[Rfam]
Phenylalanine leader peptide: a 124-nucleotide RNA sequence from Atlantibacter hermannii. By type it is a cis-regulatory leader. Pairs were carried over by alignment from the consensus structure, which was predicted with CMfinder. The literature on the family includes a 1978 paper in Proc Natl Acad Sci U S A by Zurawski et al., "Nucleotide sequence of the leader region of the phenylalanine operon of Escherichia coli". Lineage of the source: Bacteria > Pseudomonadota > Enterobacteriaceae > Atlantibacter > Atlantibacter hermannii.
RNA sequence: CAAGCAUGAACGCUGCUAUUUUCCGCUUCUUUUUUUACUUUAGCACCUGAUCUCAGGGGGCUUGCGCGUAAGAAAGAAACGGAAAAUAAACGCCAAAAGCCUCCUUCGUGGGGGCUUUUUUUUU
Numbered sequence: 001c002a003a004g005c006a007u008g009a010a011c012g013c014u015g016c017u018a019u020u021u022u023c024c025g026c027u028u029c030u031u032u033u034u035u036u037a038c039u040u041u042a043g044c045a046c047c048u049g050a051u052c053u054c055a056g057g058g059g060g061c062u063u064g065c066g067c068g069u070a071a072g073a074a075a076g077a078a079a080c081g082g083a084a085a086a087u088a089a090a091c092g093c094c095a096a097a098a099g100c101c102u103c104c105u106u107c108g109u110g111g112g113g114g115c116u117u118u119u120u121u122u123u124u
Stems, first nucleotide, its partner, number of pairs: 015091001017088002020085006027078005033073001035071004046057003060065001096118009